[Rfam]
RNA: Manganese Mn2+ riboswitch aptamer (yybP-ykoY)
RNA sequence: UGCGCACUCUUUGGGGAGUAGCCUGCUACUGAACAGUUCAGUAGAGUCCGUGUCAACAUACUCGACAGCAAUGUCGUGGCACGGGCGCCUUGUAUGACAGGGUU
Dot-bracket structure: .........................(((.............))).((((((((((.......(((((....)))))))))))))))(((((((...))))))).